[Rfam]
RNA sequence: GGAUGUGAGGGCCAUCUGGCUGCGACACCUCUCAUCCCAUUGAUCUCUAGGGUUGAUUCGGUGGCUCUGGCUGGAGAGGCGGGUGUCCCCUUCCUCCCUCACCACUCCAUGUGUGUCCCUCCCGAAGCUGAGCGCUCGGUCCAAGAGGACCACCCCUAGAGAGGAGGACCGUUUCCUAGGGAAGGGUAUACAAGUAGCUGCGCUCCCCUGCUAGAACCUCCACACAAGCUCUCAAGGUCCAUUUGAAAGGGAAUGUAGGGAAGUCAAGCUGCCAAGACCCAGACACAUCCCAAUGAGUCUCUGUAAGUGGCACUCUGCCUUUCUUA
Numbered sequence: 001g002g003a004u005g006u007g008a009g010g011g012c013c014a015u016c017u018g019g020c021u022g023c024g025a026c027a028c029c030u031c032u033c034a035u036c037c038c039a040u041u042g043a044u045c046u047c048u049a050g051g052g053u054u055g056a057u058u059c060g061g062u063g064g065c066u067c068u069g070g071c072u073g074g075a076g077a078g079g080c081g082g083g084u085g086u087c088c089c090c091u092u093c094c095u096c097c098c099u100c101a102c103c104a105c106u107c108c109a110u111g112u113g114u115g116u117c118c119c120u121c122c123c124g125a126a127g128c129u130g131a132g133c134g135c136u137c138g139g140u141c142c143a144a145g146a147g148g149a150c151c152a153c154c155c156c157u158a159g160a161g162a163g164g165a166g167g168a169c170c171g172u173u174u175c176c177u178a179g180g181g182a183a184g185g186g187u188a189u190a191c192a193a194g195u196a197g198c199u200g201c202g203c204u205c206c207c208c209u210g211c212u213a214g215a216a217c218c219u220c221c222a223c224a225c226a227a228g229c230u231c232u233c234a235a236g237g238u239c240c241a242u243u244u245g246a247a248a249g250g251g252a253a254u255g256u257a258g259g260g261a262a263g264u265c266a267a268g269c270u271g272c273c274a275a276g277a278c279c280c281a282g283a284c285a286c287a288u289c290c291c292a293a294u295g296a297g298u299c300u301c302u303g304u305a306a307g308u309g310g311c312a313c314u315c316u317g318c319c320u321u322u323c324u325u326a
Stems, first nucleotide, its partner, number of pairs: 001108003005102007014092001018090002024087007032079002035074002037070003042067002045064001047061002116167002118164004122139004127135002140160002147156002197269003203263002206260006218251003225245004292325002295321003299317001302312003
RNA: 7SK RNA